[Rfam]
RNA sequence: UCCCAUGGCGGCAGGCCACUCCACUUUCUGGUCUGCGGCACAUGAAAAAAGGAGGAAAAAAACGCCCGGGCUCGGGCUGCGGCAGUGUGGAGACCUGCCGUAACGCGGCGCAUCCCGAAGCGGAUGACCGCGAGGGCGCUUCUUGCGGAGGCAGAGCGUCCGGAGCCGAAAAUAUGGCA
Numbered sequence: 001u002c003c004c005a006u007g008g009c010g011g012c013a014g015g016c017c018a019c020u021c022c023a024c025u026u027u028c029u030g031g032u033c034u035g036c037g038g039c040a041c042a043u044g045a046a047a048a049a050a051g052g053a054g055g056a057a058a059a060a061a062a063c064g065c066c067c068g069g070g071c072u073c074g075g076g077c078u079g080c081g082g083c084a085g086u087g088u089g090g091a092g093a094c095c096u097g098c099c100g101u102a103a104c105g106c107g108g109c110g111c112a113u114c115c116c117g118a119a120g121c122g123g124a125u126g127a128c129c130g131c132g133a134g135g136g137c138g139c140u141u142c143u144u145g146c147g148g149a150g151g152c153a154g155a156g157c158g159u160c161c162g163g164a165g166c167c168g169a170a171a172a173u174a175u176g177g178c179a
Stems, first nucleotide, its partner, number of pairs: 008039002011036008064077004069167005078102008087094002105131004111126003134161008144153003
malK-I RNA: a 179-nucleotide RNA sequence. The sequence is in the family's curated seed alignment. Pairs were carried over by alignment from the consensus structure, which is taken from published work. By type it is a cis-regulatory element.